[Rfam]
RNA sequence: AGAUUGAUGAAUAGAUUUCCCCAUAUAUGCUUAAGAAUUGGCUUAAGUGUCUCUACCAUGUCACCGUAAAUGACAGGACUAUGCGGGAAAGCGGCUUUUGA
Numbered sequence: 001a002g003a004u005u006g007a008u009g010a011a012u013a014g015a016u017u018u019c020c021c022c023a024u025a026u027a028u029g030c031u032u033a034a035g036a037a038u039u040g041g042c043u044u045a046a047g048u049g050u051c052u053c054u055a056c057c058a059u060g061u062c063a064c065c066g067u068a069a070a071u072g073a074c075a076g077g078a079c080u081a082u083g084c085g086g087g088a089a090a091g092c093g094g095c096u097u098u099u100g101a
Stems, first nucleotide, its partner, number of pairs: 018087003022083004029048007057077001059075005
The family of this 101-nucleotide RNA sequence from Tetzosporium hominis is "Purine riboswitch aptamer". The organism belongs to Tetzosporium, within Bacteria. The family is grouped with related families in Rfam's "Purine riboswitches".